[Rfam]
RNA sequence: CUUCAACGAGCCGAGCCACAGCGGCAGUUCCGGCGAGCGGUCCCGCCCGUAGGUGGCCAGCAGCGCCUGCGCCUC
Dot-bracket structure: ..............(((.....))).....((.....((...(.(.(((....))).).)...))....))....
Overview:
Shown here is a 75-nucleotide RNA sequence from Kitasatospora kifunensis, a member of the family "ASpks TB sRNA". It scores 81 bits against the family's covariance model. The family's RNA type in Rfam is antisense RNA.